[Rfam]
RNA: STnc490 Hfq binding RNA
RNA sequence: AACCCCCAGCCAGGCUGGGGGUUCCGUUGAGCUUACAGCUUUGAGUAGUCUUUUAAAGCCCUUUUUGAUUUGUUAGAAAAACCUUGCGGUCUGGCAACUGCAAAGUUCAUUCAAGGAAUCGAAAG
Numbered sequence: 001a002a003c004c005c006c007c008a009g010c011c012a013g014g015c016u017g018g019g020g021g022u023u024c025c026g027u028u029g030a031g032c033u034u035a036c037a038g039c040u041u042u043g044a045g046u047a048g049u050c051u052u053u054u055a056a057a058g059c060c061c062u063u064u065u066u067g068a069u070u071u072g073u074u075a076g077a078a079a080a081a082c083c084u085u086g087c088g089g090u091c092u093g094g095c096a097a098c099u100g101c102a103a104a105g106u107u108c109a110u111u112c113a114a115g116g117a118a119u120c121g122a123a124a125g
Base pairs, nucleotide, nucleotide: 001023002022003021004020005019006018007017008016009015010014029041030040031039032038033037062125063124064123065122066121067120068119069118070117071113072112079107080106082105084103085102086101087100088099089098090097